[Rfam]
RNA sequence: GCCAGCUAAUGAUGGCCUGCACUAAAACCCAAUGCUGGGGAGUGCAGGUCUGAUGUCGCCUGGC
Numbered sequence: 001g002c003c004a005g006c007u008a009a010u011g012a013u014g015g016c017c018u019g020c021a022c023u024a025a026a027a028c029c030c031a032a033u034g035c036u037g038g039g040g041a042g043u044g045c046a047g048g049u050c051u052g053a054u055g056u057c058g059c060c061u062g063g064c
Stems, first nucleotide, its partner, number of pairs: 001064005014050010029038003
The record is a 64-nucleotide RNA sequence from Takifugu flavidus, which matches "Selenocysteine insertion sequence 1" in Rfam. It is annotated as a cis-regulatory element. Lineage of the source: Eukaryota > Chordata > Vertebrata > Ctenosquamata > Takifugu. The family's consensus secondary structure is taken from published work.